[Rfam]
RNA sequence: GGGUUCGGGGUACGAGUGUAGAUGCCCGUCUCGUACCCUGCGCCAGUGGUUUAUCUACUGAUGUACAAUUAAGGGCAUUUG
Numbered sequence: 001g002g003g004u005u006c007g008g009g010g011u012a013c014g015a016g017u018g019u020a021g022a023u024g025c026c027c028g029u030c031u032c033g034u035a036c037c038c039u040g041c042g043c044c045a046g047u048g049g050u051u052u053a054u055c056u057a058c059u060g061a062u063g064u065a066c067a068a069u070u071a072a073g074g075g076c077a078u079u080u081g
Stems, first nucleotide, its partner, number of pairs: 008038009023077005044063002049058002
Dot-bracket structure: .......(((((((((......[[[[[..))))))))).....((...((......))...)).........]]]]]....
A member of the RNA family "Coronavirus frameshifting stimulation element" from Betacoronavirus gravedinis, 81 nucleotides long. Rfam describes the family as follows. This family represents a conserved stem-loop found in Coronaviruses which can promote ribosomal frameshifting. It is one of the family's seed sequences.